Rfam assigns this 66-nucleotide RNA from Pedobacter sp. BAL39 to the family "Fluoride riboswitch aptamer (crcB RNA motif)". NCBI's taxonomy places the organism under Bacteria, Pseudomonadati, Bacteroidota, Sphingobacteriales, Pedobacter. Rfam's curators put it in the seed alignment.

[Rfam]
RNA sequence: UUGCCUAAGGGAAAUGGUGUCCUUCCAAUUUAACCGCUUUUAGAAGCUGAUGGCGCCUGCAAUGAU
Number, nucleotide and partner (000 for none) at each position: 001u000002u000003g000004c000005c000006u000007a000008a000009g000010g026011g025012a024013a023014a000015u000016g057017g056018u055019g054020u053021c052022c000023u013024u012025c011026c010027a000028a000029u000030u000031u000032a000033a000034c000035c000036g047037c046038u045039u044040u000041u000042a000043g000044a039045a038046g037047c036048u000049g000050a000051u000052g021053g020054c019055g018056c017057c016058u000059g000060c000061a000062a000063u000064g000065a000066u000